[Rfam]
RNA sequence: UGGAAGGUGCUCCUUGAACGGCUCGGACAGGUCCCUCGACAAGACCCAUCCUUGCUGGUCAGGAGCACUUUUCAGUUGUUCAACACCCGCUCAGGCAG
Dot-bracket structure: .((((((((((((.(((.((((..(((..(.((.........)).)..)))..)))).))))))))))))))).........................
Numbered sequence: 001u002g003g004a005a006g007g008u009g010c011u012c013c014u015u016g017a018a019c020g021g022c023u024c025g026g027a028c029a030g031g032u033c034c035c036u037c038g039a040c041a042a043g044a045c046c047c048a049u050c051c052u053u054g055c056u057g058g059u060c061a062g063g064a065g066c067a068c069u070u071u072u073c074a075g076u077u078g079u080u081c082a083a084c085a086c087c088c089g090c091u092c093a094g095g096c097a098g
Stems, first nucleotide, its partner, number of pairs: 002073012015061003019057004025051003030046001032044002
The record is a 98-nucleotide RNA from Blastococcus saxobsidens, which matches "Actinobacteria sRNA Ms_IGR-7" in Rfam.
Taxonomically the source falls in Blastococcus saxobsidens (Bacteria, Actinomycetes, Geodermatophilales, Blastococcus).
Pairs were carried over by alignment from the consensus structure.
A reference for the family is Li et al. (2013), "Identification of small RNAs in Mycobacterium smegmatis using heterologous Hfq", RNA.
A search with the family's covariance model found it, with a score of 47 bits.
Rfam classes the family as a small RNA.